[Rfam]
RNA sequence: CCUUGGGAGUGCUAAGAAAAUACAAGUAGAGGUUUACCUUGAAAGUAAGCACAUUGAAUAAGGAA
Numbered sequence: 001c002c003u004u005g006g007g008a009g010u011g012c013u014a015a016g017a018a019a020a021u022a023c024a025a026g027u028a029g030a031g032g033u034u035u036a037c038c039u040u041g042a043a044a045g046u047a048a049g050c051a052c053a054u055u056g057a058a059u060a061a062g063g064a065a
Stems, first nucleotide, its partner, number of pairs: 001063005009052005021047003029040004
The family of this 65-nucleotide sequence is "RAGATH-18 RNA". It is one of the family's seed sequences. From the family's description: Actinobacteria, Firmicutes, Fusobacteria, Thermotogae (1 example). Pairs were carried over by alignment from the consensus structure, which is taken from published work. The family's RNA type in Rfam is small RNA.